[Rfam]
RNA sequence: AUGUAAAGAAAGGGGAGCUUGUGAGUGCAGGCUGAGAGGAAGUCAUCAACUUCGACCCAUAUACCUGAUUUGGAUAAUGCCAACGUAGGAACCUAUAAGAUAUGAUUUU
Numbered sequence: 001a002u003g004u005a006a007a008g009a010a011a012g013g014g015g016a017g018c019u020u021g022u023g024a025g026u027g028c029a030g031g032c033u034g035a036g037a038g039g040a041a042g043u044c045a046u047c048a049a050c051u052u053c054g055a056c057c058c059a060u061a062u063a064c065c066u067g068a069u070u071u072g073g074a075u076a077a078u079g080c081c082a083a084c085g086u087a088g089g090a091a092c093c094u095a096u097a098a099g100a101u102a103u104g105a106u107u108u109u
Stems, first nucleotide, its partner, number of pairs: 007096001009094001012058003017032005039053005064089004070083004
RNA: TPP riboswitch aptamer (THI element)